[Rfam]
RNA sequence: CGAUAGCAUGUUCCUUUGUUGCCUCCAAGCAGUCGGCAGCAGAUUUUUCGCUAUCGGAAACGAAAGCUUGGAUCUUUUUCACCCAGGGUCUACUCAAGAAAGAUAUUUUUUAUCUUUCUGCACCAAUUGUAGACUCUGGUUUUGCGGAUCCAGACAUUU
Numbered sequence: 001c002g003a004u005a006g007c008a009u010g011u012u013c014c015u016u017u018g019u020u021g022c023c024u025c026c027a028a029g030c031a032g033u034c035g036g037c038a039g040c041a042g043a044u045u046u047u048u049c050g051c052u053a054u055c056g057g058a059a060a061c062g063a064a065a066g067c068u069u070g071g072a073u074c075u076u077u078u079u080c081a082c083c084c085a086g087g088g089u090c091u092a093c094u095c096a097a098g099a100a101a102g103a104u105a106u107u108u109u110u111u112a113u114c115u116u117u118c119u120g121c122a123c124c125a126a127u128u129g130u131a132g133a134c135u136c137u138g139g140u141u142u143u144g145c146g147g148a149u150c151c152a153g154a155c156a157u158u159u
Base pairs, nucleotide, nucleotide: 001056002055003054004053005052006051007050015043016042017041018040020038021037022036023035070151071150072149073148074147075146083139084138085137086136087135088134089133090132091131092130

Rfam assigns this 159-nucleotide RNA from Ixodes scapularis to the family "Small nucleolar RNA SNORA79". The family's consensus secondary structure was predicted with RNAalifold. Rfam classes the family as an H/ACA-box small nucleolar RNA. From the family's description: ACA65 (SNORA79) is a member of the H/ACA class of snoRNAs that guide the sites of modification of uridines to pseudouridines. This snoRNA was identified by computational screening and its expression in mouse experimentally verified by Northern blot and primer extension analysis. For this family Rfam cites "A computational screen for mammalian pseudouridylation guide H/ACA RNAs" (Schattner et al., RNA, 2006). A search with the family's covariance model found it, with a score of 66 bits. Its family is annotated with nucleolus and RNA processing in the Gene Ontology. The organism belongs to Ixodes, within Eukaryota.